Shown here is a 336-nucleotide part of an RNA from Johnsonella ignava, a member of the family "Bacterial large subunit ribosomal RNA".
Rfam's curators put it in the seed alignment.
RNA sequence: CGGGAGAAGCAUCGUCAAGGAACUCGGCAAAAUGACCCCGUAACUUAGGGAGAAGGGGUGCCGGCAUUAAAAGCCGGCCGCAGAAAAGAGGCCCAAGCAACUGUUUAGCAAAAACACAGGUCUAUGCGAAACCGAAAGGUGAAGUAUAUGGGCUGACGCCUGCCCGGUGCCGGAAGGUCAAGAGGAGGGGUGAGGGAAACCAAAGCUCUAAAUCCAAGCCCCGGUAAACGGCGGCCGUAACUAUAACGGUCCUAAGGUAGCGAAAUUCCUUGUCGGGUAAGUUCCGACCCGCACGAAAGGCGUAAUGAUUUGGGCGCUGUCUCGACGAUGGACCCG
Numbered sequence: 001c002g003g004g005a006g007a008a009g010c011a012u013c014g015u016c017a018a019g020g021a022a023c024u025c026g027g028c029a030a031a032a033u034g035a036c037c038c039c040g041u042a043a044c045u046u047a048g049g050g051a052g053a054a055g056g057g058g059u060g061c062c063g064g065c066a067u068u069a070a071a072a073g074c075c076g077g078c079c080g081c082a083g084a085a086a087a088g089a090g091g092c093c094c095a096a097g098c099a100a101c102u103g104u105u106u107a108g109c110a111a112a113a114a115c116a117c118a119g120g121u122c123u124a125u126g127c128g129a130a131a132c133c134g135a136a137a138g139g140u141g142a143a144g145u146a147u148a149u150g151g152g153c154u155g156a157c158g159c160c161u162g163c164c165c166g167g168u169g170c171c172g173g174a175a176g177g178u179c180a181a182g183a184g185g186a187g188g189g190g191u192g193a194g195g196g197a198a199a200c201c202a203a204a205g206c207u208c209u210a211a212a213u214c215c216a217a218g219c220c221c222c223g224g225u226a227a228a229c230g231g232c233g234g235c236c237g238u239a240a241c242u243a244u245a246a247c248g249g250u251c252c253u254a255a256g257g258u259a260g261c262g263a264a265a266u267u268c269c270u271u272g273u274c275g276g277g278u279a280a281g282u283u284c285c286g287a288c289c290c291g292c293a294c295g296a297a298a299g300g301c302g303u304a305a306u307g308a309u310u311u312g313g314g315c316g317c318u319g320u321c322u323c324g325a326c327g328a329u330g331g332a333c334c335c336g
Stems, first nucleotide, its partner, number of pairs: 001336004010330007018322003035059005044049001060078006067072001079083001091315007098307002102116003119154008127144001131140003157302004162232003167229002169225005176220003182214002187209005194201002233251006252256001262289001272288006